[Rfam]
RNA sequence: CUGUCCGAUCGGCGGAACGGUCCGGGUGCACCCGGUGGCCUGCCGUUACGCUGACCCGGUAUGCCCCCGCCGGGGCGUAAAGCCGACAGCCGUCGCACUCCAGGGAGUCACCCCAUG
Numbered sequence: 001c002u003g004u005c006c007g008a009u010c011g012g013c014g015g016a017a018c019g020g021u022c023c024g025g026g027u028g029c030a031c032c033c034g035g036u037g038g039c040c041u042g043c044c045g046u047u048a049c050g051c052u053g054a055c056c057c058g059g060u061a062u063g064c065c066c067c068c069g070c071c072g073g074g075g076c077g078u079a080a081a082g083c084c085g086a087c088a089g090c091c092g093u094c095g096c097a098c099u100c101c102a103g104g105g106a107g108u109c110a111c112c113c114c115a116u117g
Stems, first nucleotide, its partner, number of pairs: 060079004065074003082096002085094003